[Rfam]
RNA sequence: GGUCGCAAGUUUGAGGCCACAGCAGAAGCGCUCACAGCGUGGCCCUGUCAGAUCCCAACAAAUCUGCAAAUUUUGCU
Numbered sequence: 001g002g003u004c005g006c007a008a009g010u011u012u013g014a015g016g017c018c019a020c021a022g023c024a025g026a027a028g029c030g031c032u033c034a035c036a037g038c039g040u041g042g043c044c045c046u047g048u049c050a051g052a053u054c055c056c057a058a059c060a061a062a063u064c065u066g067c068a069a070a071u072u073u074u075g076c077u
Stems, first nucleotide, its partner, number of pairs: 013045001015044004021077007028040003049066005
The family of this 77-nucleotide RNA from Crocodylus porosus is "Mammalian CPEB3 ribozyme". A search with the family's covariance model found it, with a score of 50 bits. The source organism's lineage runs through Eukaryota, Dipnotetrapodomorpha, Amniota, Crocodylia and Crocodylus.